Rfam assigns this 87-nucleotide sequence from Bacillus salinus to the family "BsrC". For this family Rfam cites "Novel small RNA-encoding genes in the intergenic regions of Bacillus subtilis" (Saito et al., Gene, 2008). It scores 73 bits against the family's covariance model. Rfam 15.1 lists 572 matches to the family in 553 species. Rfam's curators write: The 301 nucleotide sequence from Kouji Nakamura has been trimmed to a highly conserved ~85 nucleotide long core to form this family.

[Rfam]
RNA sequence: AUGAACUUAAACGACGCAAGCCCUACCUCUCUUGCAUCCUCACGGCUCCGAAGCCGAUCCAGUGUGAAUAAGUGUUUCUAUAAAUCA
Numbered sequence: 001a002u003g004a005a006c007u008u009a010a011a012c013g014a015c016g017c018a019a020g021c022c023c024u025a026c027c028u029c030u031c032u033u034g035c036a037u038c039c040u041c042a043c044g045g046c047u048c049c050g051a052a053g054c055c056g057a058u059c060c061a062g063u064g065u066g067a068a069u070a071a072g073u074g075u076u077u078c079u080a081u082a083a084a085u086c087a
Stems, first nucleotide, its partner, number of pairs: 035066002039062002043056005